[Rfam]
About this RNA
This 55-nucleotide sequence belongs to the Rfam family "Glutamine-II riboswitch aptamer".
RNA sequence: UUCCGUUCAUCCCACAAGGGACGCAUGUUUGCAUAGGUAUGGAACGGGACCUAUG
Numbered sequence: 001u002u003c004c005g006u007u008c009a010u011c012c013c014a015c016a017a018g019g020g021a022c023g024c025a026u027g028u029u030u031g032c033a034u035a036g037g038u039a040u041g042g043a044a045c046g047g048g049a050c051c052u053a054u055g
Base pairs, nucleotide, nucleotide: 004046005045006044007043008042010021011020012019013018032055033054034053035052036051037050038049
Its family is annotated with glutamine binding in the Gene Ontology.